[Rfam]
RNA sequence: AUACUUACCUGGCAGGGGAGAUACCAUGAUCACAAAGGUGGUUUCCCCAGGGUGAGGCUUAUCCAUUGCACUCCCGAUGUGCUGACCCCUGUGAUUCCCCCAAAUGUGGGAGACUUGACUGCAUAAUUUGUGGUAAUGGGGGACUGCAUUUACACUUUUCCCUG
Numbered sequence: 001a002u003a004c005u006u007a008c009c010u011g012g013c014a015g016g017g018g019a020g021a022u023a024c025c026a027u028g029a030u031c032a033c034a035a036a037g038g039u040g041g042u043u044u045c046c047c048c049a050g051g052g053u054g055a056g057g058c059u060u061a062u063c064c065a066u067u068g069c070a071c072u073c074c075c076g077a078u079g080u081g082c083u084g085a086c087c088c089c090u091g092u093g094a095u096u097c098c099c100c101c102a103a104a105u106g107u108g109g110g111a112g113a114c115u116u117g118a119c120u121g122c123a124u125a126a127u128u129u130g131u132g133g134u135a136a137u138g139g140g141g142g143a144c145u146g147c148a149u150u151u152a153c154a155c156u157u158u159u160c161c162c163u164g
Base pairs, nucleotide, nucleotide: 012122013121014120015119016048017047018046020044021043023042024041025040026039027038049090050089051088052087054086056083057082058081060079061078062077063076092117093116094115095113096111097110099109100108138163139162140161141160142159143158146155

The family of this 164-nucleotide sequence from Homo sapiens is "U1 spliceosomal RNA". For this family Rfam cites "Crystal structure of human spliceosomal U1 snRNP at 5.5 A resolution" (Pomeranz Krummel et al., Nature, 2009). The match comes from Rfam's covariance-model search (134 bits). Pairs were carried over by alignment from the consensus structure, which is taken from published work.